[Rfam]
RNA: Small nucleolar RNA R12
RNA sequence: UUCUGGGUGACGAAGAAAAUCAUUCGGAUUCCCACUGAUUUUACCAAUAUGAUUCUAAUAACCAGCUACUUCUGACAGAU
Number, nucleotide and partner (000 for none) at each position: 001u000002u079003c078004u077005g076006g000007g000008u000009g000010a000011c000012g000013a000014a000015g000016a000017a000018a000019a000020u000021c000022a000023u000024u000025c000026g000027g000028a000029u000030u000031c000032c000033c000034a000035c000036u000037g000038a000039u000040u000041u000042u000043a000044c000045c000046a000047a000048u000049a000050u000051g000052a000053u000054u000055c000056u000057a000058a000059u000060a000061a000062c000063c000064a000065g000066c000067u000068a000069c000070u000071u000072c000073u000074g000075a000076c005077a004078g003079a002080u000